Record summary: Rfam assigns this 375-nucleotide RNA sequence from Thermothielavioides terrestris to the family "Nuclear RNase P". The family's RNA type in Rfam is ribozyme. Lineage of the source: Eukaryota > Ascomycota > Sordariomycetes > Thermothielavioides > Thermothielavioides terrestris.
RNA sequence: UCCUCUUCAACGCUGCGUUUCUAUGCUACAAACGGAGAGCCUGCGCAAGCAGUGCUUUCAACACCUUCUAUUGGCAUAUGAGAAAUUCGGAGAAUCGGCUUCACUCUCUGGCUCGUCCGUCUGCGCCCUCGGGCGUUCCGACGGGUUGCGGGCUCUGCCGGUGACGGCUUGGCGCGAUAUCGCGUCUGUAAUUGGCAUCAGAAAAGCAGGGCCUGGGGCUGCCUCGUGCCUCGGCGUGUGGCAGCUCCCACGGUUCCUCUGGGAGAGCCGUUACGAAGCUUGUGGCCAGACACUUGAGUGCAAUACGCAGCGUGCGGUCCUGCCUCCUCUGGGGGUGGGCAUCACACAAUUCGAUUCCGAUUAUUCUGUUGAGGA
Number, nucleotide and partner (000 for none) at each position: 001u375002c374003c373004u372005c000006u000007u000008c368009a367010a000011c000012g311013c310014u309015g308016c307017g306018u305019u000020u000021c000022u078023a077024u076025g075026c000027u000028a000029c000030a000031a000032a000033c000034g000035g059036a058037g057038a056039g055040c054041c000042u000043g000044c000045g000046c000047a000048a000049g000050c000051a000052g000053u000054g040055c039056u038057u037058u036059c035060a000061a000062c000063a000064c000065c000066u000067u000068c000069u000070a000071u000072u000073g000074g000075c025076a024077u023078a022079u000080g000081a000082g000083a000084a000085a000086u000087u000088c359089g358090g357091a356092g355093a000094a000095u000096c000097g287098g286099c285100u284101u000102c000103a000104c000105u000106c000107u000108c000109u000110g000111g000112c000113u000114c000115g000116u000117c000118c000119g000120u000121c000122u000123g000124c000125g000126c000127c000128c000129u000130c000131g000132g000133g000134c000135g000136u000137u000138c000139c000140g000141a000142c000143g000144g000145g000146u000147u000148g000149c000150g000151g000152g000153c000154u000155c000156u000157g168158c167159c166160g165161g000162u000163g000164a000165c160166g159167g158168c157169u000170u000171g186172g185173c184174g183175c182176g000177a000178u000179a000180u000181c000182g175183c174184g173185u172186c171187u000188g274189u273190a272191a271192u000193u000194g269195g268196c267197a000198u000199c000200a000201g000202a000203a000204a000205a000206g000207c000208a000209g258210g257211g256212c000213c000214u000215g000216g000217g000218g000219c000220u000221g000222c000223c000224u000225c000226g000227u000228g000229c000230c000231u000232c000233g000234g000235c000236g000237u000238g000239u000240g000241g000242c000243a000244g000245c000246u000247c000248c000249c000250a000251c000252g000253g000254u000255u000256c211257c210258u209259c000260u000261g000262g000263g000264a000265g000266a000267g196268c195269c194270g000271u191272u190273a189274c188275g000276a000277a000278g000279c000280u000281u000282g000283u000284g100285g099286c098287c097288a000289g000290a000291c000292a000293c000294u000295u000296g000297a000298g000299u000300g000301c000302a000303a000304u000305a018306c017307g016308c015309a014310g013311c012312g347313u346314g345315c000316g343317g342318u341319c000320c000321u000322g000323c000324c000325u000326c000327c000328u000329c000330u000331g000332g000333g000334g000335g000336u000337g000338g000339g000340c000341a318342u317343c316344a000345c314346a313347c312348a000349a000350u000351u000352c000353g000354a000355u092356u091357c090358c089359g088360a000361u000362u000363a000364u000365u000366c000367u009368g008369u000370u000371g000372a004373g003374g002375a001